Background
Rfam assigns this 339-nucleotide RNA sequence from Sus scrofa to the family "7SK RNA". Rfam's curators write: 7SK was discovered as an abundant small nuclear RNA in the mid-70s but a possible function has only recently been suggested. The family is grouped with related families in Rfam's "7SK clan". The source organism's lineage runs through Eukaryota, Eumetazoa, Teleostomi, Artiodactyla and Sus.
RNA sequence: GGAUGUGAGGGCCAUCUGGCUGUGACAUCUGUCACCCCAUUGAUCGCCAGGGUUGAUUCGGCUGAUCUGGCUGGCUAGGCAGGUGUCCCCUUCCUCCCUCACCGCUCCAUGUGCGUCCCUCCCGAAGCUGCACGCUCGGUCGAAGAGGACGACCAUCCUCGAUAGAGGAGGACCGUUCUUCGGUCAAGGGUAUACGAGUAGCUGCGCUCCCCUGCUAGAACCUCCAAACAAGCUCUCAAGGUUCAGCCAUCUUUUUAAAAUGCACAUUUCAGGAAAUGCAGUAGGUAAUUUCACCUUGACUUAUCAAGGAAAAAUAGAAAUCUUAAGGGAUUUCUGUUU
Numbered sequence: 001g002g003a004u005g006u007g008a009g010g011g012c013c014a015u016c017u018g019g020c021u022g023u024g025a026c027a028u029c030u031g032u033c034a035c036c037c038c039a040u041u042g043a044u045c046g047c048c049a050g051g052g053u054u055g056a057u058u059c060g061g062c063u064g065a066u067c068u069g070g071c072u073g074g075c076u077a078g079g080c081a082g083g084u085g086u087c088c089c090c091u092u093c094c095u096c097c098c099u100c101a102c103c104g105c106u107c108c109a110u111g112u113g114c115g116u117c118c119c120u121c122c123c124g125a126a127g128c129u130g131c132a133c134g135c136u137c138g139g140u141c142g143a144a145g146a147g148g149a150c151g152a153c154c155a156u157c158c159u160c161g162a163u164a165g166a167g168g169a170g171g172a173c174c175g176u177u178c179u180u181c182g183g184u185c186a187a188g189g190g191u192a193u194a195c196g197a198g199u200a201g202c203u204g205c206g207c208u209c210c211c212c213u214g215c216u217a218g219a220a221c222c223u224c225c226a227a228a229c230a231a232g233c234u235c236u237c238a239a240g241g242u243u244c245a246g247c248c249a250u251c252u253u254u255u256u257a258a259a260a261u262g263c264a265c266a267u268u269u270c271a272g273g274a275a276a277u278g279c280a281g282u283a284g285g286u287a288a289u290u291u292c293a294c295c296u297u298g299a300c301u302u303a304u305c306a307a308g309g310a311a312a313a314a315u316a317g318a319a320a321u322c323u324u325a326a327g328g329g330a331u332u333u334c335u336g337u338u339u
Stems, first nucleotide, its partner, number of pairs: 001108003005102007014092001018090002024087010035074002037070003042067004046062003116171002118168004122139004127135002140162003147158003201290001203288001207284002212281004223274003232270001313339001315336005321328002